[Rfam]
RNA sequence: CUAUCCCGCGCGGGAGAGUCUCCGGGUCGCUGGCCGGCCCGGGGCGCCGAAGGGGCAAUUCCUCCCCGGAACCUCUCAGGCACCCGGACCGCGCGGUCGAG
Numbered sequence: 001c002u003a004u005c006c007c008g009c010g011c012g013g014g015a016g017a018g019u020c021u022c023c024g025g026g027u028c029g030c031u032g033g034c035c036g037g038c039c040c041g042g043g044g045c046g047c048c049g050a051a052g053g054g055g056c057a058a059u060u061c062c063u064c065c066c067c068g069g070a071a072c073c074u075c076u077c078a079g080g081c082a083c084c085c086g087g088a089c090c091g092c093g094c095g096g097u098c099g100a101g
Base pairs, nucleotide, nucleotide: 006096007095008094009093010092011091012090013089020044021043022042023041024040025039026038027037046081047080048079049077050076053075054074055073059069060068